[Rfam]
RNA sequence: CCCCCAAGGGGAAGCGAAGACCCUAUAGAGCUUUACUGCAGGCUGUCGCUGGGACACGGUCGCUGAUGUGCAGCAUAGGUAGGAGCCAUUACACAGGUACCCGCGCUAGCGGGCCACCGAGGCAGCAUUGAAAUACUACCCGUCAGUGACUGUGACCCUCACUCCGGGAGGAAGACACCGGUAGCCGGGCAGUUUGACUGGGGCGGUACACGCUCGAAAAGAUAUCGAGCGUGCCCCAAGAUUUCCUCAUCCGCGUCAGAAACGCGGAACAGAGCGCAAGAGCAAAAGGAAGUCUGACAGUGUCCUCCACAACGAGGGACGCUGACGCGAAAGCGUGGUCUAGCGAACCUAUCAGCCUGCUUGAUGCGGGCGAUAGAUGACAGAAAAGCUACCUUAGGGAUAACAGAGUCGUCACUCGCAAGAGCACAUAUCGACCGAGUGGCUUGCUACCUCGAUGUCGGUUCCCUCCAUCCUGCCCGUGCAGAAGCGGGCAAGGGUGAGGUUGUUCGCCUAUUAAAGGAGGUCGUGAGCUGGGUUUAGACCGUCGUGAGACAGGUCGGCUGCUAUCUAUUGGGGGUGUUAC
Numbered sequence: 001c002c003c004c005c006a007a008g009g010g011g012a013a014g015c016g017a018a019g020a021c022c023c024u025a026u027a028g029a030g031c032u033u034u035a036c037u038g039c040a041g042g043c044u045g046u047c048g049c050u051g052g053g054a055c056a057c058g059g060u061c062g063c064u065g066a067u068g069u070g071c072a073g074c075a076u077a078g079g080u081a082g083g084a085g086c087c088a089u090u091a092c093a094c095a096g097g098u099a100c101c102c103g104c105g106c107u108a109g110c111g112g113g114c115c116a117c118c119g120a121g122g123c124a125g126c127a128u129u130g131a132a133a134u135a136c137u138a139c140c141c142g143u144c145a146g147u148g149a150c151u152g153u154g155a156c157c158c159u160c161a162c163u164c165c166g167g168g169a170g171g172a173a174g175a176c177a178c179c180g181g182u183a184g185c186c187g188g189g190c191a192g193u194u195u196g197a198c199u200g201g202g203g204c205g206g207u208a209c210a211c212g213c214u215c216g217a218a219a220a221g222a223u224a225u226c227g228a229g230c231g232u233g234c235c236c237c238a239a240g241a242u243u244u245c246c247u248c249a250u251c252c253g254c255g256u257c258a259g260a261a262a263c264g265c266g267g268a269a270c271a272g273a274g275c276g277c278a279a280g281a282g283c284a285a286a287a288g289g290a291a292g293u294c295u296g297a298c299a300g301u302g303u304c305c306u307c308c309a310c311a312a313c314g315a316g317g318g319a320c321g322c323u324g325a326c327g328c329g330a331a332a333g334c335g336u337g338g339u340c341u342a343g344c345g346a347a348c349c350u351a352u353c354a355g356c357c358u359g360c361u362u363g364a365u366g367c368g369g370g371c372g373a374u375a376g377a378u379g380a381c382a383g384a385a386a387a388g389c390u391a392c393c394u395u396a397g398g399g400a401u402a403a404c405a406g407a408g409u410c411g412u413c414a415c416u417c418g419c420a421a422g423a424g425c426a427c428a429u430a431u432c433g434a435c436c437g438a439g440u441g442g443c444u445u446g447c448u449a450c451c452u453c454g455a456u457g458u459c460g461g462u463u464c465c466c467u468c469c470a471u472c473c474u475g476c477c478c479g480u481g482c483a484g485a486a487g488c489g490g491g492c493a494a495g496g497g498u499g500a501g502g503u504u505g506u507u508c509g510c511c512u513a514u515u516a517a518a519g520g521a522g523g524u525c526g527u528g529a530g531c532u533g534g535g536u537u538u539a540g541a542c543c544g545u546c547g548u549g550a551g552a553c554a555g556g557u558c559g560g561c562u563g564c565u566a567u568c569u570a571u572u573g574g575g576g577g578u579g580u581u582a583c
Stems, first nucleotide, its partner, number of pairs: 001577007010569003014564002022398004027394002029390005035193004042185007051158003055154014078140005085123003100113005163172003196209001197207003210232006235338002241293006247273002250268006274283002298324009326335001328333001349376005355371005407448003411445001412442007422432002459534001460532004464526001465523005472497002476491005500512004540558004544553003